The family of this 176-nucleotide RNA from Romboutsia hominis is "glmS glucosamine-6-phosphate activated ribozyme aptamer". The match comes from Rfam's covariance-model search (119 bits). The family's RNA type in Rfam is riboswitch. This entry contains a glucosamine-6-phosphate activated ribozyme that is found in the mRNA for GlmS. GlmS is an enzyme that uses fructose-6-phosphate and glutamine to generate glucosamine-6-phosphate. The ribozyme catalyses self cleavage of the glmS mRNA that is thought to regulate GlmS activity. The base pairs follow the family's consensus structure, which is taken from published work.
RNA sequence: UCACUUUAUAAAGCGCCAGAACUUAGCUAUAAGAAAUACUUUAUAAAAUUUCUAAGUUGACGAGGACAGAGUUUAUCGAAUUAUCGGCGGAUGCUCUGCGGUGAAUUUACCAUCGUAAAAGUUUCUUUAAAACAAGGGAGUAAUUCUUUGGACAAAGGGAAAACUUAAGUAAAUAU
Number, nucleotide and partner (000 for none) at each position: 001u000002c000003a000004c000005u000006u000007u000008a000009u000010a000011a000012a000013g000014c000015g000016c000017c000018a000019g000020a058021a057022c056023u055024u054025a053026g052027c000028u000029a049030u000031a000032a000033g000034a000035a000036a000037u000038a000039c000040u000041u000042u000043a000044u000045a000046a000047a000048a000049u029050u000051u000052c026053u025054a024055a023056g022057u021058u020059g000060a000061c000062g000063a000064g000065g000066a000067c098068a097069g096070a095071g094072u000073u000074u000075a000076u087077c086078g085079a084080a000081u000082u000083a000084u079085c078086g077087g076088c000089g000090g000091a000092u000093g000094c071095u070096c069097u068098g067099c115100g114101g113102u112103g111104a000105a000106u000107u000108u000109a000110c000111c103112a102113u101114c100115g099116u000117a000118a000119a166120a165121g164122u163123u162124u161125c159126u000127u000128u000129a000130a000131a000132a000133c150134a149135a148136g147137g146138g145139a144140g000141u000142a000143a000144u139145u138146c137147u136148u135149u134150g133151g000152a000153c000154a000155a000156a000157g000158g000159g125160a000161a124162a123163a122164c121165u120166u119167a000168a000169g000170u000171a000172a000173a000174u000175a000176u000